[Rfam]
RNA sequence: AGCCAUGCGUUGAGCACAAAGCGAACUAUUCUUUCGCCUUUUAUUAAAGACAAUGUGCUCGUUGUUAUAAGUGGCUUACGUAUAUUUUUGGAGGGGCACACCUCUGUGGGUGCCU
Numbered sequence: 001a002g003c004c005a006u007g008c009g010u011u012g013a014g015c016a017c018a019a020a021g022c023g024a025a026c027u028a029u030u031c032u033u034u035c036g037c038c039u040u041u042u043a044u045u046a047a048a049g050a051c052a053a054u055g056u057g058c059u060c061g062u063u064g065u066u067a068u069a070a071g072u073g074g075c076u077u078a079c080g081u082a083u084a085u086u087u088u089u090g091g092a093g094g095g096g097c098a099c100a101c102c103u104c105u106g107u108g109g110g111u112g113c114c115u
Stems, first nucleotide, its partner, number of pairs: 003074004008064002011061008030050005092115001095114005
RNA: U5 spliceosomal RNA